[Rfam]
RNA sequence: AGAGUCAAUUAGGCAAUCGCCGCCUCUUUAUUGAGGGGGAGGAAAGUCCGGACUCCAUAGGGAAGGGUGAUGGCUAACGGCCAUCCACGGCGACGUGCGGAAUAGGGCCACAGAGACGAGCGUAUUUAGUUACGGUGAAACGCGGUAACCUCCACCCGGAGCAAUCCCAAGUAAGCAGGCGAUGAGGCGUCCCGCUGAGUCUGCGGGUAGGGAGCUUGAGCCGUUAGGUAACUGACGGCCUAGAGGAAUGAUUGCCCCUAGAUGCAAGUCUAGGCGACAGAAUCCGGCUUAUCGAUUGGCUCUGCAC
Numbered sequence: 001a002g003a004g005u006c007a008a009u010u011a012g013g014c015a016a017u018c019g020c021c022g023c024c025u026c027u028u029u030a031u032u033g034a035g036g037g038g039g040a041g042g043a044a045a046g047u048c049c050g051g052a053c054u055c056c057a058u059a060g061g062g063a064a065g066g067g068u069g070a071u072g073g074c075u076a077a078c079g080g081c082c083a084u085c086c087a088c089g090g091c092g093a094c095g096u097g098c099g100g101a102a103u104a105g106g107g108c109c110a111c112a113g114a115g116a117c118g119a120g121c122g123u124a125u126u127u128a129g130u131u132a133c134g135g136u137g138a139a140a141c142g143c144g145g146u147a148a149c150c151u152c153c154a155c156c157c158g159g160a161g162c163a164a165u166c167c168c169a170a171g172u173a174a175g176c177a178g179g180c181g182a183u184g185a186g187g188c189g190u191c192c193c194g195c196u197g198a199g200u201c202u203g204c205g206g207g208u209a210g211g212g213a214g215c216u217u218g219a220g221c222c223g224u225u226a227g228g229u230a231a232c233u234g235a236c237g238g239c240c241u242a243g244a245g246g247a248a249u250g251a252u253u254g255c256c257c258c259u260a261g262a263u264g265c266a267a268g269u270c271u272a273g274g275c276g277a278c279a280g281a282a283u284c285c286g287g288c289u290u291a292u293c294g295a296u297u298g299g300c301u302c303u304g305c306a307c
Base pairs, nucleotide, nucleotide: 001303002302003301004300005299006298007297008296009295010294011292012256013255014254015253016252017251018250020039021038023036024035025034026033044290045289046288048287049286050285051284052283053161054160055159056158060193061192062191063190065157066156067155068154069153070084071083072082073081074080085099086097087096088095089094100152101151105150106149107146108145109144121134122133123132124131165213166212167211168210175204176203177202178201179200180199186196187195188194220239221238222237223236224235225234226233227232

This 307-nucleotide RNA sequence from Polynucleobacter paneuropaeus belongs to the Rfam family "Bacterial RNase P class A". The base pairs follow the family's consensus structure, which is taken from published work. Gene Ontology terms of the family: ribonuclease P activity, tRNA processing and dimeric ribonuclease P complex. The source organism's lineage runs through Bacteria, Pseudomonadati, Pseudomonadota, Burkholderiales and Polynucleobacter. A reference for the family is Frank and Pace (1998), "Ribonuclease P: unity and diversity in a tRNA processing ribozyme", Annu Rev Biochem.